[Rfam]
RNA: Glycine riboswitch aptamer
Organism: Zemynaea arenosa
RNA sequence: GGCCCAAACUCUGGAGAGCGGCCGCGGCGCAGCCAGCGGCCCACCGAAGGGGCGUGCGGCCUGCCGCUAUCUCUCAGGUACCAAGGACAGAUGGGCGGCG
Numbered sequence: 001g002g003c004c005c006a007a008a009c010u011c012u013g014g015a016g017a018g019c020g021g022c023c024g025c026g027g028c029g030c031a032g033c034c035a036g037c038g039g040c041c042c043a044c045c046g047a048a049g050g051g052g053c054g055u056g057c058g059g060c061c062u063g064c065c066g067c068u069a070u071c072u073c074u075c076a077g078g079u080a081c082c083a084a085g086g087a088c089a090g091a092u093g094g095g096c097g098g099c100g
Stems, first nucleotide, its partner, number of pairs: 010091004020041006043079003046075002050073003056067002